[Rfam]
RNA: U11 spliceosomal RNA
Organism: Apostasia shenzhenica
RNA sequence: UAAAAGGGUCGGUUGGCUAUGUAUGCCACGCCUGCUCGUUAAGUGGUGGGUGCUGUAUGGCUAUCAAGACAUAUGGCCGACAUAAUUUGUGGGACCAAGGUGGGGUUGGCUCGCUCGGCCGACCCUCCAA
Number, nucleotide and partner (000 for none) at each position: 001u000002a000003a000004a000005a000006g000007g000008g081009u080010c079011g078012g077013u000014u028015g027016g026017c025018u000019a000020u000021g000022u000023a000024u000025g017026c016027c015028a014029c052030g051031c050032c049033u048034g047035c046036u045037c000038g000039u000040u000041a000042a000043g000044u000045g036046g035047u034048g033049g032050g031051u030052g029053c076054u075055g074056u073057a072058u071059g070060g000061c000062u000063a000064u000065c000066a000067a000068g000069a000070c059071a058072u057073a056074u055075g054076g053077c012078c011079g010080a009081c008082a000083u000084a000085a000086u000087u000088u000089g000090u000091g000092g000093g000094a000095c000096c000097a000098a000099g128100g127101u000102g125103g000104g124105g123106u122107u121108g120109g119110c118111u117112c000113g000114c000115u000116c000117g111118g110119c109120c108121g107122a106123c105124c104125c102126u000127c100128c099129a000130a000